[Rfam]
RNA: Metazoan signal recognition particle RNA
RNA sequence: ACUGGGAGCGUGGCGCACUCCUGUAACCUAGCUUCUAGGGGGUCGGGUGUAGAGGAUGACUUGAGGUGUGGAGUCCUAGUGCAGUAUUUACCACGUUGACCGGGUGCCCGCACUAAGCUUGGCAUCAAUAUGGACAACCCGAAGUAGUUUGGGGUGUCCAGGUUGCAUAAUGAGGGGCGCACCGGGCCAGGGGGGAAACCCAGCAGCCAAAAGUCCCCGUGUCGAACAGUAGUGGGAUCGUACCUGGGAGUGGGAAUUCUGUAGUAGCCAUACCAACAUAGUUAGACCUACACCUUU
Numbered sequence: 001a002c003u004g005g006g007a008g009c010g011u012g013g014c015g016c017a018c019u020c021c022u023g024u025a026a027c028c029u030a031g032c033u034u035c036u037a038g039g040g041g042g043u044c045g046g047g048u049g050u051a052g053a054g055g056a057u058g059a060c061u062u063g064a065g066g067u068g069u070g071g072a073g074u075c076c077u078a079g080u081g082c083a084g085u086a087u088u089u090a091c092c093a094c095g096u097u098g099a100c101c102g103g104g105u106g107c108c109c110g111c112a113c114u115a116a117g118c119u120u121g122g123c124a125u126c127a128a129u130a131u132g133g134a135c136a137a138c139c140c141g142a143a144g145u146a147g148u149u150u151g152g153g154g155u156g157u158c159c160a161g162g163u164u165g166c167a168u169a170a171u172g173a174g175g176g177g178c179g180c181a182c183c184g185g186g187c188c189a190g191g192g193g194g195g196a197a198a199c200c201c202a203g204c205a206g207c208c209a210a211a212a213g214u215c216c217c218c219g220u221g222u223c224g225a226a227c228a229g230u231a232g233u234g235g236g237a238u239c240g241u242a243c244c245u246g247g248g249a250g251u252g253g254g255a256a257u258u259c260u261g262u263a264g265u266a267g268c269c270a271u272a273c274c275a276a277c278a279u280a281g282u283u284a285g286a287c288c289u290a291c292a293c294c295u296u297u
Base pairs, nucleotide, nucleotide: 001043002042003041004022005021006020007019008018010016027040028039029038045295046294047293048292049291050290051289052288057284058283059282060281061280065274066273067272068271069270070269071268076267077266078265080263081262082261083260084259086257087256088255091253092252093251094250096248100247101246102245103244104243105242106241107240108236109235111234112233113232114231115230117227119225120224121223122222123221124220125219126165127164128163129162131160132159133158134157135156136155138153139152140151141150142149143148166172167171174217175216176215177214178213185208186207187206192201193200194199